[Rfam]
RNA sequence: GCAAUCCUUCGGGGCAGGGUGAAAUUCCCUACCGACGGUGAUGGCUCAUUGGACGCUCGUUCGAUGAAGCACAAGUCCGUGACCCGCAGCGCUUACGUAAGCAUGCGGCUGAGCCGGUGAGAUUCCGGGACCGACAGUAUAGUCUGGAUGGGAGAAGGAAAAC
Numbered sequence: 001g002c003a004a005u006c007c008u009u010c011g012g013g014g015c016a017g018g019g020u021g022a023a024a025u026u027c028c029c030u031a032c033c034g035a036c037g038g039u040g041a042u043g044g045c046u047c048a049u050u051g052g053a054c055g056c057u058c059g060u061u062c063g064a065u066g067a068a069g070c071a072c073a074a075g076u077c078c079g080u081g082a083c084c085c086g087c088a089g090c091g092c093u094u095a096c097g098u099a100a101g102c103a104u105g106c107g108g109c110u111g112a113g114c115c116g117g118u119g120a121g122a123u124u125c126c127g128g129g130a131c132c133g134a135c136a137g138u139a140u141a142g143u144c145u146g147g148a149u150g151g152g153a154g155a156a157g158g159a160a161a162a163c
Stems, first nucleotide, its partner, number of pairs: 005159006017029003031143002033133002035080004075131002084108004114128004135146003

Rfam assigns this 163-nucleotide RNA sequence from Paenibacillus sp. oral taxon 786 to the family "FMN riboswitch aptamer (RFN element)". Gene Ontology term of the family: FMN binding. A search with the family's covariance model found it, with a score of 103 bits.